Ribosomal protein L20 leader: a 120-nucleotide sequence from Effusibacillus lacus.
RNA sequence: GAGUCUAAGCAGAAGCGCUCGCUUCUCACCUGCUUGCCGGUUGCGAUCAGGUUCAUCUGUGAUACGGUCUGUUUUCGUAUUCAUGGCGGGCGCAUUAUGCGCCCGCUUUCUUAUUUUAUU
Numbered sequence: 001g002a003g004u005c006u007a008a009g010c011a012g013a014a015g016c017g018c019u020c021g022c023u024u025c026u027c028a029c030c031u032g033c034u035u036g037c038c039g040g041u042u043g044c045g046a047u048c049a050g051g052u053u054c055a056u057c058u059g060u061g062a063u064a065c066g067g068u069c070u071g072u073u074u075u076c077g078u079a080u081u082c083a084u085g086g087c088g089g090g091c092g093c094a095u096u097a098u099g100c101g102c103c104c105g106c107u108u109u110c111u112u113a114u115u116u117u118a119u120u
Stems, first nucleotide, its partner, number of pairs: 011026006028052003034046004085107010
Dot-bracket structure: ..........((((((....)))))).(((...((((.....))))...)))................................((((((((((...)))))))))).............
Record summary:
The organism belongs to Effusibacillus, within Bacteria. The family's consensus secondary structure was predicted with CMfinder. For this family Rfam cites "Diverse mechanisms for regulating ribosomal protein synthesis in Escherichia coli" (Zengel and Lindahl, Prog Nucleic Acid Res Mol Biol, 1994). The family's RNA type in Rfam is cis-regulatory leader. About the family: This family is a putative r-protein leader autoregulatory structure found in B. subtilis and other low-GC Gram-positive bacteria. It is located in the 5' untranslated regions of mRNAs encoding initiation factor 3 followed by ribosomal proteins L35 and L20 (infC-rpmI-rplT).